[Rfam]
RNA sequence: CAAACGGCCGUUUUCACGGCCACCAAAUUUUUCGAAAAAGUUGCCU
Numbered sequence: 001c002a003a004a005c006g007g008c009c010g011u012u013u014u015c016a017c018g019g020c021c022a023c024c025a026a027a028u029u030u031u032u033c034g035a036a037a038a039a040g041u042u043g044c045c046u
Stems, first nucleotide, its partner, number of pairs: 006021006